This 382-nucleotide sequence from Roseivivax sediminis belongs to the Rfam family "Bacterial RNase P class A". The family's consensus secondary structure is taken from published work. From the family's description: Ribonuclease P (RNase P) is a ubiquitous endoribonuclease, found in archaea, bacteria and eukarya as well as chloroplasts and mitochondria. It scores 289 bits against the family's covariance model. The family's RNA type in Rfam is ribozyme.
RNA sequence: GCGGAGGGCCGGAUGGCCGCGGGCCGGUAUCGGUCCGAGGAAAGUCCGGACUCCCUGAAGCGACGGUGCCGGGUAACGCCCGGGCAGGGCAACCUGACGGACAGCGCCACAGAAAACAGACCGCCGCGGGCUUUCCGCGGUCAGGGUGAAACGGUGGGGUAAGAGCCCACCGGGGGGCCGGCAACGGCGCCCGCAUGGCAAGCCCCACCGGGAGCAAUGCCAAAUAGGGAUCUCGCGCGGGGCUUUGUCCUCGCAGGGCCGCUUCAGCCCGAGAGAUCCGGGUUGGCAGCUCGAGCCGCCGGGCAACCGGCGGCCCAGAGGAAUGGUCAUCUCCGCCCUUCGCGGGUGCAGACAGAAUCCGGCUUACAGGCCCUCCGCGCGC
Number, nucleotide and partner (000 for none) at each position: 001g378002c377003g376004g375005a374006g373007g372008g371009c370010c369011g367012g331013a330014u329015g328016g327017c326018c325019g000020c037021g036022g035023g034024c033025c032026g031027g000028u000029a000030u000031c026032g025033g024034u023035c022036c021037g020038a000039g000040g000041a000042a365043a364044g363045u000046c362047c361048g360049g359050a358051c214052u213053c212054c211055c000056u000057g000058a000059a000060g264061c000062g262063a000064c210065g209066g208067u207068g206069c083070c082071g081072g080073g079074u000075a000076a000077c000078g000079c073080c072081c071082g070083g069084g098085c096086a095087g094088g093089g000090c000091a000092a000093c088094c087095u086096g085097a000098c084099g205100g204101a000102c000103a000104g203105c202106g199107c198108c197109a000110c000111a000112g000113a000114a000115a000116a000117c000118a000119g000120a000121c145122c144123g141124c140125c139126g138127c137128g136129g135130g134131c000132u000133u000134u130135c129136c128137g127138c126139g125140g124141u123142c000143a000144g122145g121146g000147u000148g000149a000150a000151a000152c000153g171154g170155u169156g168157g167158g166159g000160u000161a000162a000163g000164a000165g000166c158167c157168c156169a155170c154171c153172g194173g192174g191175g190176g000177g188178c187179c186180g185181g000182c000183a000184a000185c180186g179187g178188c177189g000190c175191c174192c173193g000194c172195a000196u000197g108198g107199c106200a000201a000202g105203c104204c100205c099206c068207a067208c066209c065210g064211g054212g053213a052214g051215c000216a000217a000218u288219g287220c286221c285222a000223a000224a000225u000226a000227g000228g279229g278230a277231u276232c275233u274234c000235g000236c000237g000238c000239g000240g000241g000242g000243c000244u000245u000246u000247g000248u000249c000250c000251u000252c000253g000254c000255a000256g270257g269258g268259c267260c000261g000262c062263u000264u060265c000266a000267g259268c258269c257270c256271g000272a000273g000274a233275g232276a231277u230278c229279c228280g000281g000282g000283u000284u000285g221286g220287c219288a218289g000290c000291u000292c000293g000294a000295g314296c313297c312298g311299c310300c309301g308302g307303g000304c000305a000306a000307c302308c301309g300310g299311c298312g297313g296314c295315c000316c000317a000318g000319a000320g000321g000322a000323a000324u000325g018326g017327u016328c015329a014330u013331c012332u000333c000334c000335g000336c000337c000338c000339u000340u000341c000342g000343c000344g000345g000346g000347u000348g000349c000350a000351g000352a000353c000354a000355g000356a000357a000358u050359c049360c048361g047362g046363c044364u043365u042366a000367c011368a000369g010370g009371c008372c007373c006374u005375c004376c003377g002378c001379g000380c000381g000382c000